RNA: Archaeal signal recognition particle RNA
Nucleotides: 307
Stems, first nucleotide, its partner, number of pairs: 001307007009299001012060004017031004035056004040051001066298016082281003086278001088276005094271002097268001099264007110252001116249005122240008130231005136225001137176007144168002146165008179223007190215003198207003
Number, partner (000 for none) and nucleotide at each position: 001307c002306a003305c004304a005303c006302g007301g008000g009299u010000a011000g012060g013059g014058u015057c016000a017031g018030g019029g020028g021000c022000u023000c024000g025000c026000c027000c028020u029019c030018c031017c032000g033000u034000u035056c036055c037054c038053g039000a040051a041000a042000u043000g044000g045000g046000c047000g048000a049000a050000a051040u052000g053038c054037g055036g056035g057015g058014a059013c060012c061000a062000g063000c064000a065000a066298u067297c068296c069295c070294g071293u072292g073291c074290a075289u076288g077287g078286g079285g080284a081283a082281g083280g084279g085000g086278c087000a088276c089275g090274g091273c092272g093000g094271g095270c096000a097268g098000g099264u100263c101262c102261u103260g104259g105258a106000u107000a108000g109000c110252u111000a112000u113000g114000a115000a116249g117248u118247c119246c120245g121000c122240c123239c124238u125237g126236u127235g128234g129233g130231g131230u132229c133228g134227g135000g136225g137176g138175a139174a140173g141172c142171g143170g144168c145167c146165g147164g148163c149162c150161g151160u152159c153158u154000g155000g156000a157000g158153g159152g160151a161150c162149g163148g164147u165146c166000u167145g168144g169000a170143c171142c172141g173140c174139u175138u176137u177000u178000g179223c180222c181221g182220g183219g184218g185217a186000a187000a188000a189000c190215a191214g192213g193000c194000c195000a196000g197000g198207c199206c200205c201000g202000g203000a204000a205200g206199g207198g208000a209000g210000c211000a212000a213192c214191c215190u216000a217185u218184c219183c220182u221181c222180g223179g224000a225136c226000u227134c228133c229132g230131g231130c232000g233129u234128u235127c236126a237125c238124a239123g240122g241000u242000c243000a244000c245120c246119g247118g248117g249116c250000a251000g252110a253000g254000c255000g256000a257000u258105u259104c260103c261102a262101g263100g264099g265000g266000a267000a268097c269000c270095g271094c272092u273091g274090u275089c276088g277000c278086g279084c280083u281082c282000c283081u284080u285079u286078u287077c288076u289075a290074u291073g292072c293071a294070c295069g296068g297067g298066a299009a300000g301007c302006c303005g304004u305003g306002u307001g